[Rfam]
RNA: TPP riboswitch aptamer (THI element)
Organism: Corynebacterium alimapuense
RNA sequence: AACUUAAUCCACGGGUACCCAGUGAAACUCUGGGCUGAGACGUCGAAAUGGCGGACCGUUGAACCUGAUCCGGUUAGUACCGGCGAUAGGGAGAAUCUUCUCGUGAACA
Numbered sequence: 001a002a003c004u005u006a007a008u009c010c011a012c013g014g015g016u017a018c019c020c021a022g023u024g025a026a027a028c029u030c031u032g033g034g035c036u037g038a039g040a041c042g043u044c045g046a047a048a049u050g051g052c053g054g055a056c057c058g059u060u061g062a063a064c065c066u067g068a069u070c071c072g073g074u075u076a077g078u079a080c081c082g083g084c085g086a087u088a089g090g091g092a093g094a095a096u097c098u099u100c101u102c103g104u105g106a107a108c109a
Stems, first nucleotide, its partner, number of pairs: 007096002010093001011059004016053001018034004042052004064090004070083004